[Rfam]
RNA sequence: ACGUUGGCAGAGUAAUUGUCUAACCCUAAUUAUAGUGUGCUUUCCGUAGAUUUGGUUUCUGUUUUGUCUCUAGCUUUCAGGGCCGCACGGGAAGUUUUUUGUGGAAGGAUGGAAUGGGCGAAAAAAGGCUAGAGGUUUACUCUGCGAAACUCAGUCUCCCGACGAAAAAUGCUAUGACCGUGGACAGCCUGGCUGCCGCGAAGGGUCCGUCUCUGUUGCGCUGGCAUUCUUUCUCGGGUAAAACGACAAUGAGCAGAUCAAACUGAGCGCUCGUGUACCUUUGCGAAUCCUAAGCUAUGGAGUCGCAAGAAAGCCCGCGCUCAAACAAAA
Numbered sequence: 001a002c003g004u005u006g007g008c009a010g011a012g013u014a015a016u017u018g019u020c021u022a023a024c025c026c027u028a029a030u031u032a033u034a035g036u037g038u039g040c041u042u043u044c045c046g047u048a049g050a051u052u053u054g055g056u057u058u059c060u061g062u063u064u065u066g067u068c069u070c071u072a073g074c075u076u077u078c079a080g081g082g083c084c085g086c087a088c089g090g091g092a093a094g095u096u097u098u099u100u101g102u103g104g105a106a107g108g109a110u111g112g113a114a115u116g117g118g119c120g121a122a123a124a125a126a127g128g129c130u131a132g133a134g135g136u137u138u139a140c141u142c143u144g145c146g147a148a149a150c151u152c153a154g155u156c157u158c159c160c161g162a163c164g165a166a167a168a169a170u171g172c173u174a175u176g177a178c179c180g181u182g183g184a185c186a187g188c189c190u191g192g193c194u195g196c197c198g199c200g201a202a203g204g205g206u207c208c209g210u211c212u213c214u215g216u217u218g219c220g221c222u223g224g225c226a227u228u229c230u231u232u233c234u235c236g237g238g239u240a241a242a243a244c245g246a247c248a249a250u251g252a253g254c255a256g257a258u259c260a261a262a263c264u265g266a267g268c269g270c271u272c273g274u275g276u277a278c279c280u281u282u283g284c285g286a287a288u289c290c291u292a293a294g295c296u297a298u299g300g301a302g303u304c305g306c307a308a309g310a311a312a313g314c315c316c317g318c319g320c321u322c323a324a325a326c327a328a329a330a
Stems, first nucleotide, its partner, number of pairs: 005146001007145009041094005053085005059080003069133006075126003150253004155248001163236003167232003170226005179200005185195004202214004265322004269314003281308005288301003
RNA: Vertebrate telomerase RNA
Organism: Albula glossodonta